[Rfam]
Annotation: Shown here is a 120-nucleotide RNA, a member of the family "Hairpin ribozyme 1 from viruses-like metatranscriptomes". Gene Ontology term of the family: RNA nuclease activity. It is one of the family's seed sequences.
RNA sequence: UGUCUGUCCCGAACUACAUCAGGGUAUGCAACAGGACCUUCCUUCACGGAAGGUCCUGUUGACUGUUCGGGGAAGACAACCAGGGAAACACACCGGCAAGCCGGUGGCACAUUAACUGGU
Numbered sequence: 001u002g003u004c005u006g007u008c009c010c011g012a013a014c015u016a017c018a019u020c021a022g023g024g025u026a027u028g029c030a031a032c033a034g035g036a037c038c039u040u041c042c043u044u045c046a047c048g049g050a051a052g053g054u055c056c057u058g059u060u061g062a063c064u065g066u067u068c069g070g071g072g073a074a075g076a077c078a079a080c081c082a083g084g085g086a087a088a089c090a091c092a093c094c095g096g097c098a099a100g101c102c103g104g105u106g107g108c109a110c111a112u113u114a115a116c117u118g119g120u
Stems, first nucleotide, its partner, number of pairs: 001078004009070006029061014079120005091106006